The record is a 120-nucleotide RNA from Paramaledivibacter caminithermalis, which matches "Molybdenum/Tungsten riboswitch aptamer (Moco RNA motif)" in Rfam. The family's consensus secondary structure is taken from published work. Rfam 15.1 lists 1,248 matches to the family in 836 species. The source organism's lineage runs through Bacteria, Bacillati, Bacillota, Caminicellaceae and Paramaledivibacter caminithermalis.
RNA sequence: UAUUAUUUGUCUCUUCGAGUCUUUUGAUCUAAGGGUUUUAUCUAUGAUUUUAAGACCGAUAGGGUACAAUUGGAAACGGUUGUGCCUCCCAGUGUGGAAAGAAGAGAUCGUGGUAUAGUA
Dot-bracket structure: ...(......((((((..(((((..((((...((((...))))..))))..))))).....(((((((((((....)))))))))))((......))...))))))......).......